[Rfam]
RNA: mir-192/215 microRNA precursor family
Organism: Alligator mississippiensis
Nucleotides: 075
Base pairs, nucleotide, nucleotide: 001075002074003073004072005071006070008068010066011065013063014062015061016060018057019056020055022053023052024051025050026049027048028047029046031044
Number, partner (000 for none) and nucleotide at each position: 001075g002074c003073a004072g005071g006070a007000a008068a009000a010066u011065g012000a013063c014062c015061u016060a017000u018057g019056a020055a021000u022053u023052g024051a025050c026049a027048g028047a029046c030000u031044g032000u033000g034000u035000a036000u037000u038000c039000u040000a041000a042000g043000c044031u045000u046029g047028u048027c049026u050025g051024u052023c053022a054000u055020u056019u057018c058000u059000g060016u061015a062014g063013g064000c065011c066010a067000a068008u069000a070006u071005u072004c073003u074002g075001c